Rfam assigns this 117-nucleotide RNA sequence from Marinosulfonomonas sp. PRT-SC04 to the family "ALIL pseudoknot". It scores 113 bits against the family's covariance model.
RNA sequence: AGCAUAUUUUGCCCAGGCGGAGCUCGACCGCCCGUUCCGCAAAUGGUGAGUUUCAUAGAAGAUCACCGUGAUGUUUUUGGUGUCGGGCCGGUUUGCAGGGUUUUGCCAAUCGCACCA
Numbered sequence: 001a002g003c004a005u006a007u008u009u010u011g012c013c014c015a016g017g018c019g020g021a022g023c024u025c026g027a028c029c030g031c032c033c034g035u036u037c038c039g040c041a042a043a044u045g046g047u048g049a050g051u052u053u054c055a056u057a058g059a060a061g062a063u064c065a066c067c068g069u070g071a072u073g074u075u076u077u078u079g080g081u082g083u084c085g086g087g088c089c090g091g092u093u094u095g096c097a098g099g100g101u102u103u104u105g106c107c108a109a110u111c112g113c114a115c116c117a
Stems, first nucleotide, its partner, number of pairs: 016032005078117005089112002092109002095106004
The organism belongs to Marinosulfonomonas, within Bacteria. It is annotated as a cis-regulatory element. Pairs were carried over by alignment from the consensus structure, which is taken from published work.